[Rfam]
RNA: SAM riboswitch aptamer (S box leader)
Nucleotides: 108
Base pairs, nucleotide, nucleotide: 002107003106004105005104006103007102008101013041015040016039017038021031022030023029025082026081027080028079042074043073044072045071047070048069049063050062051061052060078100083097084096085095086094087093
Number, partner (000 for none) and nucleotide at each position: 001000c002107u003106c004105u005104u006103a007102u008101c009000a010000a011000g012000a013041g014000u015040g016039g017038u018000g019000g020000a021031g022030g023029g024000a025082c026081u027080g028079g029023c030022c031021c032000g033000a034000u035000g036000a037000a038017g039016c040015c041013c042074a043073g044072c045071a046000a047070c048069c049063g050062g051061u052060a053000g054000u055000u056000u057000u058000a059000u060052u061051a062050c063049u064000a065000u066000g067000g068000c069048g070047g071045u072044g073043c074042u075000a076000a077000u078100u079028c080027c081026a082025g083097c084096a085095a086094u087093a088000c089000u090000a091000g092000u093087u094086a095085u096084u097083g098000g099000g100078a101008g102007a103006u104005a105004a106003g107002a108000a